[Rfam]
RNA sequence: AGUAACGUGGUUCGAGACCAUCCCACGUAAAAAAACUAGGGGGAA
Numbered sequence: 001a002g003u004a005a006c007g008u009g010g011u012u013c014g015a016g017a018c019c020a021u022c023c024c025a026c027g028u029a030a031a032a033a034a035a036c037u038a039g040g041g042g043g044a045a
Stems, first nucleotide, its partner, number of pairs: 006027005016037001